A member of the RNA family "c-di-AMP riboswitch aptamer (ydaO/yuaA leader)" from Neomoorella thermoacetica, 188 nucleotides long. The source organism's lineage runs through Bacteria, Bacillati, Clostridia, Neomoorellales and Neomoorella. About the family: This family represents a conserved RNA structure found upstream of the ydaO and yuaA genes in Bacillus subtilis and related genes in other bacteria. The ydaO/yuaA element is thought to act as a genetic 'off' switch for the ydaO and yuaA genes in its native state. It is believed that the element may be triggered during osmotic shock leading to activation of ydaO, a predicted amino acid transporter gene, and members of the yuaA-yubG operon which code for KtrA and KtrB K+ transporters. The match comes from Rfam's covariance-model search (87 bits).
RNA sequence: UAGGUGUAAAUGCCUAAUCCCGCAAAAUCGGGAACGGGGGACCCACCAGAGGGGUGAAUCCCCGCCCUCAGUAAGUUUCAUUACUUUGGGGUAAUAAAGCUAAUCAAAGUAUGGAAACUGAGGGCGGGGUAGGGCUUUUCUCCGGCCCGAACCCGGCAGCUAACCCCGUCGGCAGGAAAGGAGAUGGU
Numbered sequence: 001u002a003g004g005u006g007u008a009a010a011u012g013c014c015u016a017a018u019c020c021c022g023c024a025a026a027a028u029c030g031g032g033a034a035c036g037g038g039g040g041a042c043c044c045a046c047c048a049g050a051g052g053g054g055u056g057a058a059u060c061c062c063c064g065c066c067c068u069c070a071g072u073a074a075g076u077u078u079c080a081u082u083a084c085u086u087u088g089g090g091g092u093a094a095u096a097a098a099g100c101u102a103a104u105c106a107a108a109g110u111a112u113g114g115a116a117a118c119u120g121a122g123g124g125c126g127g128g129g130u131a132g133g134g135c136u137u138u139u140c141u142c143c144g145g146c147c148c149g150a151a152c153c154c155g156g157c158a159g160c161u162a163a164c165c166c167c168g169u170c171g172g173c174a175g176g177a178a179a180g181g182a183g184a185u186g187g188u
Stems, first nucleotide, its partner, number of pairs: 011174004018033005034169006044051001052154003060129013132148004